The record is a 70-nucleotide RNA sequence, which matches "DUF3800-IX RNA" in Rfam. Rfam's curators put it in the seed alignment.
RNA sequence: AACCUGUUUUCCGAACUGUCACCGGACGGUGGCGUGACUGGGACACCCAGUAUAGGAGAUGUGGUUGGGA
Number, nucleotide and partner (000 for none) at each position: 001a066002a065003c064004c000005u063006g062007u061008u000009u058010u057011c056012c055013g000014a000015a000016c000017u034018g033019u032020c031021a030022c029023c028024g000025g000026a000027c000028g023029g022030u021031g020032g019033c018034g017035u000036g000037a051038c050039u049040g048041g000042g000043a000044c000045a000046c000047c000048c040049a039050g038051u037052a000053u000054a000055g012056g011057a010058g009059a000060u000061g007062u006063g005064g003065u002066u001067g000068g000069g000070a000
By type it is a small RNA.